A member of the RNA family "Gag/pol translational readthrough site", 61 nucleotides long. The family's consensus secondary structure is taken from published work. On this family, see Wills et al., EMBO J 1994: "Pseudoknot-dependent read-through of retroviral gag termination codons: importance of sequences in the spacer and loop 2".
RNA sequence: UAGGGGAGUCAGGGUUCGGACCCCCUCCCCGAACCUAGGGUAACACUGACUGUGGAGGGGA
Number, nucleotide and partner (000 for none) at each position: 001u000002a000003g000004g000005g000006g000007a000008g041009u040010c039011a000012g036013g035014g034015u033016u031017c000018g029019g028020a000021c000022c060023c059024c058025c057026u056027c055028c019029c018030c000031g016032a000033a015034c014035c013036u012037a000038g000039g010040g009041u008042a000043a000044c000045a000046c000047u000048g000049a000050c000051u000052g000053u000054g000055g027056a026057g025058g024059g023060g022061a000
Overview: The sequence is in the family's curated seed alignment. Gene Ontology term of the family: viral translational readthrough.